RNA sequence: CUUUAUGUGGAUGGUGUUUAGCAUCAAGAACAGUUAUGUUUUUGUGUGUUGAUGGUGUUCAGCACCACGGAUACAUAGGCAUAACC
Numbered sequence: 001c002u003u004u005a006u007g008u009g010g011a012u013g014g015u016g017u018u019u020a021g022c023a024u025c026a027a028g029a030a031c032a033g034u035u036a037u038g039u040u041u042u043u044g045u046g047u048g049u050u051g052a053u054g055g056u057g058u059u060c061a062g063c064a065c066c067a068c069g070g071a072u073a074c075a076u077a078g079g080c081a082u083a084a085c086c
Stems, first nucleotide, its partner, number of pairs: 002073001004071001012067007020059007028047001030045004036041001

Rfam assigns this 86-nucleotide sequence from Branchiostoma lanceolatum to the family "mir-2060 microRNA precursor family".
Rfam links the family to the GO terms miRNA-mediated post-transcriptional gene silencing and RISC complex.
Pairs were carried over by alignment from the consensus structure, which was predicted with RNAalifold.
The family has 7 seed sequences and 3,696 matches in Rfam 15.1.